[Rfam]
RNA sequence: GGCUGGUCCAAUGGUGUUGGGUUAUCAGAACUUAUAAACGUUAGUGUCACUAAACUUGGUAUACAACCCGCUACUGCUAAAGUUGACAGGCUUUAA
Numbered sequence: 001g002g003c004u005g006g007u008c009c010a011a012u013g014g015u016g017u018u019g020g021g022u023u024a025u026c027a028g029a030a031c032u033u034a035u036a037a038a039c040g041u042u043a044g045u046g047u048c049a050c051u052a053a054a055c056u057u058g059g060u061a062u063a064c065a066a067c068c069c070g071c072u073a074c075u076g077c078u079a080a081a082g083u084u085g086a087c088a089g090g091c092u093u094u095a096a
Base pairs, nucleotide, nucleotide: 001092002091003090004089006087007086008085010084011083015079016075018073019072020071033061034060035059037057038056
RNA: Y RNA